[Rfam]
Shown here is a 187-nucleotide RNA, a member of the family "malK-I RNA". The base pairs follow the family's consensus structure, which is taken from published work. By type it is a cis-regulatory element.
RNA sequence: UAGGCGCGAACACAGUCACUCCACUUAUUGAUUGUGCGGACGCUGAAUAAAAAGGAGGAAACUCAUCCCCUCGGCUUGGGGGUGCGGCAGUGUGGAGACCUGUCGCAACGCACGAUCGACGAAUGCGCGACGUGUGAGGCAGUUCGGUGGAGAAUUCCGGGACUGUUAAAGUCAAAGCAGUAUGGCA
Numbered sequence: 001u002a003g004g005c006g007c008g009a010a011c012a013c014a015g016u017c018a019c020u021c022c023a024c025u026u027a028u029u030g031a032u033u034g035u036g037c038g039g040a041c042g043c044u045g046a047a048u049a050a051a052a053a054g055g056a057g058g059a060a061a062c063u064c065a066u067c068c069c070c071u072c073g074g075c076u077u078g079g080g081g082g083u084g085c086g087g088c089a090g091u092g093u094g095g096a097g098a099c100c101u102g103u104c105g106c107a108a109c110g111c112a113c114g115a116u117c118g119a120c121g122a123a124u125g126c127g128c129g130a131c132g133u134g135u136g137a138g139g140c141a142g143u144u145c146g147g148u149g150g151a152g153a154a155u156u157c158c159g160g161g162a163c164u165g166u167u168a169a170a171g172u173c174a175a176a177g178c179a180g181u182a183u184g185g186c187a
Stems, first nucleotide, its partner, number of pairs: 006041001011036008067082004071175001073173005083107008092099002110135005116130003138167008149158003